MIR475 microRNA precursor family: a 133-nucleotide sequence from Diabrotica virgifera. The match comes from Rfam's covariance-model search (76 bits). The literature on the family includes a 2005 paper in Plant Cell by Lu et al., "Novel and mechanical stress-responsive MicroRNAs in Populus trichocarpa that are absent from Arabidopsis". Gene Ontology terms of the family: miRNA-mediated post-transcriptional gene silencing and RISC complex.
[Rfam]
RNA sequence: UAACACAUUAGUUAAUGAAAAGCGUGGGGGAAAACCGUUUAUUCGAUGAAGAACAUUCUUUAAAGAAAAGCGUGGGGCGCGUCUUCAUCGAAUAAACGGUUUUCCCCCACGCUUUUCAUUAACUAAUGUGUUA
Dot-bracket structure: ..((((((((((((((((.((((((((((((.((((.(((...((..((((...............................))))..))...))).)))).)))))))))))).))))))))))))))))..